[Rfam]
RNA sequence: GGAGAUUUGAGAGGAUCUGUCCUUAGUACGAGAGGACCGGGAUGGACGUACCUCUGGUGUGCCGGUUGUCAUGCCAAUGGCAUUGCCGGGUAGCUAUGUACGGAUGGGAUAACCGCUGAAAGCAUCUAAGCGGGAAACCCACCUCAAGAUGAGAUCUCCCUGAGAGUGUAACUCUCCUAAAGGUUCGUCGAAGACUACGACGUUGAUAGGCGGGGUGUGUAAGUCCAGUAAUGGAUUGAGCUAACCCGUACUAAUUGACCGUGCG
Numbered sequence: 001g002g003a004g005a006u007u008u009g010a011g012a013g014g015a016u017c018u019g020u021c022c023u024u025a026g027u028a029c030g031a032g033a034g035g036a037c038c039g040g041g042a043u044g045g046a047c048g049u050a051c052c053u054c055u056g057g058u059g060u061g062c063c064g065g066u067u068g069u070c071a072u073g074c075c076a077a078u079g080g081c082a083u084u085g086c087c088g089g090g091u092a093g094c095u096a097u098g099u100a101c102g103g104a105u106g107g108g109a110u111a112a113c114c115g116c117u118g119a120a121a122g123c124a125u126c127u128a129a130g131c132g133g134g135a136a137a138c139c140c141a142c143c144u145c146a147a148g149a150u151g152a153g154a155u156c157u158c159c160c161u162g163a164g165a166g167u168g169u170a171a172c173u174c175u176c177c178u179a180a181a182g183g184u185u186c187g188u189c190g191a192a193g194a195c196u197a198c199g200a201c202g203u204u205g206a207u208a209g210g211c212g213g214g215g216u217g218u219g220u221a222a223g224u225c226c227a228g229u230a231a232u233g234g235a236u237u238g239a240g241c242u243a244a245c246c247c248g249u250a251c252u253a254a255u256u257g258a259c260c261g262u263g264c265g
Stems, first nucleotide, its partner, number of pairs: 001159008011145004017045007047102005055096003062089005067082006106140003113133005162176005179262001182260004186202005207253003210249005217241001223236005

The record is a 265-nucleotide part of an RNA from Acidiferrobacter sp. SPIII_3, which matches "Bacterial large subunit ribosomal RNA" in Rfam. The source organism's lineage runs through Bacteria, Pseudomonadati, Pseudomonadota, Acidiferrobacteraceae and Acidiferrobacter.